[Rfam]
Overview:
This 217-nucleotide RNA sequence from Lachnospiraceae bacterium NE2001 belongs to the Rfam family "glmS glucosamine-6-phosphate activated ribozyme aptamer".

RNA sequence: AGUGCCGUUAAGGCACGUGGGUGCCUUGACGGGCAGGCGGCGUACACUGUGCUUGAAAACUUGUGAAUUAAGCAUCGACGAGGUAAGGAGUUAUCGAAACGACAGGUUAAACUGCUCGAAAAAACUCGGCGGAUGCUCCUUCGGACCGGCACAUUCGUAAUCUACAUCUUUAAAAACUGCAGGCAACUGUAGAACAGAGAGGUGUAGAACGUGCAUA
Numbered sequence: 001a002g003u004g005c006c007g008u009u010a011a012g013g014c015a016c017g018u019g020g021g022u023g024c025c026u027u028g029a030c031g032g033g034c035a036g037g038c039g040g041c042g043u044a045c046a047c048u049g050u051g052c053u054u055g056a057a058a059a060c061u062u063g064u065g066a067a068u069u070a071a072g073c074a075u076c077g078a079c080g081a082g083g084u085a086a087g088g089a090g091u092u093a094u095c096g097a098a099a100c101g102a103c104a105g106g107u108u109a110a111a112c113u114g115c116u117c118g119a120a121a122a123a124a125c126u127c128g129g130c131g132g133a134u135g136c137u138c139c140u141u142c143g144g145a146c147c148g149g150c151a152c153a154u155u156c157g158u159a160a161u162c163u164a165c166a167u168c169u170u171u172a173a174a175a176a177c178u179g180c181a182g183g184c185a186a187c188u189g190u191a192g193a194a195c196a197g198a199g200a201g202g203u204g205u206a207g208a209a210c211g212u213g214c215a216u217a
Stems, first nucleotide, its partner, number of pairs: 020076005026070001029068001085141005094129004142157004162207007177192006

The match comes from Rfam's covariance-model search (63 bits). About the family: This entry contains a glucosamine-6-phosphate activated ribozyme that is found in the mRNA for GlmS. GlmS is an enzyme that uses fructose-6-phosphate and glutamine to generate glucosamine-6-phosphate. The ribozyme catalyses self cleavage of the glmS mRNA that is thought to regulate GlmS activity. The family's RNA type in Rfam is riboswitch.